The record is a 78-nucleotide sequence, which matches "chrB-a RNA" in Rfam. The sequence is in the family's curated seed alignment. The family's consensus secondary structure is taken from published work.

RNA sequence: CGUUUGGGGAAGCGAUCUCCCCUUCAGGCGACAUGCCCAAGCAUCGCGUCCAGCUUCGCUCGCCGAGGACGCUCCAUG
Numbered sequence: 001c002g003u004u005u006g007g008g009g010a011a012g013c014g015a016u017c018u019c020c021c022c023u024u025c026a027g028g029c030g031a032c033a034u035g036c037c038c039a040a041g042c043a044u045c046g047c048g049u050c051c052a053g054c055u056u057c058g059c060u061c062g063c064c065g066a067g068g069a070c071g072c073u074c075c076a077u078g
Stems, first nucleotide, its partner, number of pairs: 006022005046072006